[Rfam]
RNA: L31-Actinobacteria ribosomal protein leader
RNA sequence: GCGGUUCCGGUUCCCGCCGCGCGCACCCCGGUGUGCUCAGCGCGCAAGCCUCACAGGCGAGAGACAGUGGCGACCCGGCGACC
Number, nucleotide and partner (000 for none) at each position: 001g000002c000003g083004g082005u081006u000007c078008c077009g076010g075011u000012u000013c000014c000015c072016g071017c070018c069019g068020c000021g000022c000023g000024c000025a000026c000027c000028c000029c000030g000031g000032u000033g000034u000035g000036c000037u000038c000039a000040g000041c000042g000043c000044g000045c000046a000047a000048g000049c000050c000051u000052c000053a000054c000055a000056g000057g000058c000059g000060a000061g000062a000063g000064a000065c000066a000067g000068u019069g018070g017071c016072g015073a000074c000075c010076c009077g008078g007079c000080g000081a005082c004083c003